[Rfam]
Nucleotides: 135
Stems, first nucleotide, its partner, number of pairs: 003059006014051002016046003022038005070128006091108006
Number, partner (000 for none) and nucleotide at each position: 001000a002000u003059c004058u005057u006056c007055u008054c009000a010000u011000u012000g013000a014051g015050c016046u017045c018044c019000u020000u021000a022038c023037u024036g025035u026034c027000a028000a029000u030000u031000g032000g033000u034026g035025g036024c037023a038022g039000u040000u041000u042000a043000u044018g045017g046016a047000u048000u049000c050015g051014c052000a053000c054008g055007a056006g057005a058004a059003g060000a061000a062000g063000a064000g065000a066000c067000a068000a069000u070128u071127c072126a073125c074124a075123g076000u077000u078000a079000g080000c081000a082000u083000u084000a085000u086000u087000u088000u089000a090000c091108c092107u093106u094105c095104u096103g097000u098000c099000u100000u101000c102000a103096c104095a105094g106093a107092g108091g109000u110000a111000u112000a113000u114000g115000u116000u117000g118000c119000u120000g121000u122000u123075u124074u125073g126072u127071g128070a129000g130000a131000c132000a133000u134000c135000u
This 135-nucleotide sequence from Vulpes vulpes belongs to the Rfam family "Small nucleolar RNA SNORA75". Taxonomically the source falls in Vulpes (Eukaryota, Sarcopterygii, Eutheria, Boreoeutheria). Pairs were carried over by alignment from the consensus structure, which was predicted with PFOLD. The family's RNA type in Rfam is H/ACA-box small nucleolar RNA. Rfam links the family to the GO terms RNA processing and nucleolus. U23 belongs to the H/ACA class of snoRNAs. snoRNAs bind a number of proteins (including dyskerin, Gar1p and Nop10p in the case of the H/ACA class) to form snoRNP complexes. This class are thought to guide the sites of modification of uridines to pseudouridines by forming direct base pairing interactions with substrate RNAs.